[Rfam]
RNA sequence: AUCGAAGAAGCCGAAAAUCGAAAGAGUAAGCA
Numbered sequence: 001a002u003c004g005a006a007g008a009a010g011c012c013g014a015a016a017a018u019c020g021a022a023a024g025a026g027u028a029a030g031c032a
Stems, first nucleotide, its partner, number of pairs: 003020003010031002
A member of the RNA family "DUF805b RNA" from Flavobacterium croceum, 32 nucleotides long. NCBI's taxonomy places the organism under Bacteria, Pseudomonadati, Flavobacteriia, Flavobacteriales, Flavobacterium croceum.